[Rfam]
RNA sequence: GCCUUGGGCAUGGCAUAAAACUGCUCACCGUCAAGCAACGCAUCGUCUGAUCAACGGUGGCUCAACGAUGUUUGAUGGCACAAGUAAAUAACGUAGCUGUCUUUUGAGCGGGUUAGCUGCAAUCCGAAACGGAGAACUUCGUUUGGACUGUGGCGCUUUUGUUAUGCCCAUUUUGCAGCUGACCA
Number, nucleotide and partner (000 for none) at each position: 001g000002c000003c000004u000005u000006g000007g000008g000009c000010a000011u000012g000013g000014c000015a000016u000017a000018a000019a000020a000021c000022u000023g000024c000025u000026c000027a000028c078029c077030g076031u075032c074033a000034a072035g071036c070037a069038a000039c067040g066041c059042a058043u057044c056045g055046u000047c000048u000049g000050a000051u000052c000053a000054a000055c045056g044057g043058u042059g041060g109061c108062u107063c106064a105065a104066c040067g039068a000069u037070g036071u035072u034073u000074g032075a031076u030077g029078g028079c000080a000081c000082a000083a000084g000085u000086a000087a000088a000089u000090a000091a000092c000093g000094u181095a180096g179097c178098u177099g176100u175101c000102u000103u000104u065105u064106g063107a062108g061109c060110g000111g000112g000113u000114u000115a000116g154117c153118u152119g151120c150121a000122a000123u000124c000125c000126g000127a000128a000129a142130c141131g140132g139133a138134g000135a000136a000137c000138u133139u132140c131141g130142u129143u000144u000145g000146g000147a000148c000149u000150g120151u119152g118153g117154c116155g000156c000157u000158u000159u000160u000161g000162u000163u000164a000165u000166g000167c000168c000169c000170a000171u000172u000173u000174u000175g100176c099177a098178g097179c096180u095181g094182a000183c000184c000185a000
A member of the RNA family "DUF2800 RNA", 185 nucleotides long.